[Rfam]
RNA sequence: CUCUUAUUCAGAGUGAUGGAGAUACAUAGGAUCUGUGAAGUCACGGCAACCCCGUUUCCGAGAGGGACAGGAAGGUGCCAACCUGAGCGAGCAAUCGAACAAUAAGGG
Dot-bracket structure: ((((((((....(((((...(((...[..[)))......)))))((((.((((................))..))))))....]..](((....)))...))))))))
RNA: SAM riboswitch aptamer (S box leader)
Organism: Roseburia sp. CAG:197